[Rfam]
RNA sequence: GUGUGGCUGCGCCGUUUACGCAGACACGCCGGUCUGCUGGUAGGCGCCCGUACGGCACGGGGCGCAAGAGACGAAAGGC
Number, nucleotide and partner (000 for none) at each position: 001g029002u028003g027004u026005g025006g000007c023008u022009g021010c020011g019012c000013c000014g000015u000016u000017u000018a000019c011020g010021c009022a008023g007024a000025c005026a004027c003028g002029c001030c000031g000032g072033u071034c070035u069036g000037c068038u067039g000040g000041u000042a000043g000044g065045c064046g063047c062048c061049c060050g000051u000052a000053c000054g000055g000056c000057a000058c000059g000060g049061g048062g047063c046064g045065c044066a000067a038068g037069a035070g034071a033072c032073g000074a000075a000076a000077g000078g000079c000
RNA: aspS RNA
Organism: Olsenella profusa